[Rfam]
This 49-nucleotide RNA sequence from Actinoplanes missouriensis belongs to the Rfam family "L31-Actinobacteria ribosomal protein leader". Rfam classes the family as a cis-regulatory leader. For this family Rfam cites "Discovery of 20 novel ribosomal leader candidates in bacteria and archaea" (Eckert and Weinberg, BMC Microbiol, 2020). Lineage of the source: Bacteria > Bacillati > Actinomycetota > Micromonosporales > Actinoplanes missouriensis.
RNA sequence: GGGGUUCCGGUUCACGCCACGUUCCAGCAGGAAUGGCGACCCGGCGACC
Numbered sequence: 001g002g003g004g005u006u007c008c009g010g011u012u013c014a015c016g017c018c019a020c021g022u023u024c025c026a027g028c029a030g031g032a033a034u035g036g037c038g039a040c041c042c043g044g045c046g047a048c049c
Stems, first nucleotide, its partner, number of pairs: 003049003007044004015038005022033004